[Rfam]
Nucleotides: 166
Stems, first nucleotide, its partner, number of pairs: 012125004020050005026045005052093004057089001059086003063082005095120003098116001099114002102111002140165006148157003
Number, partner (000 for none) and nucleotide at each position: 001000a002000u003000a004000c005000u006000u007000a008000c009000c010000u011000g012125g013124c014123a015122g016000c017000a018000g019000a020050g021049g022048a023047g024046a025000c026045a027044c028043c029042a030041u031000g032000a033000u034000c035000a036000a037000g038000a039000a040000g041030g042029u043028g044027g045026u046024u047023c048022u049021c050020c051000c052093a053092g054091g055090g056000c057089g058000a059086g060085g061084c062000u063082c064081a065080c066079c067078c068000a069000u070000u071000g072000u073000g074000c075000u076000c077000c078067g079066g080065g081064u082063g083000u084061g085060u086059u087000g088000a089057c090055c091054u092053c093052u094000g095120c096119g097118a098116u099114u100113u101000c102111c103110u104000c105000g106000a107000a108000u109000a110103g111102g112000g113100g114099a115000a116098a117000u118097u119096c120095g121000a122015u123014u124013g125012u126000g127000u128000a129000a130000u131000u132000a133000u134000g135000g136000u137000a138000g139000u140165g141164g142163g143162g144161g145160a146000c147000u148157g149156c150155g151000u152000g153000c154000g155150c156149g157148c158000u159000u160145u161144c162143c163142c164141c165140u166000g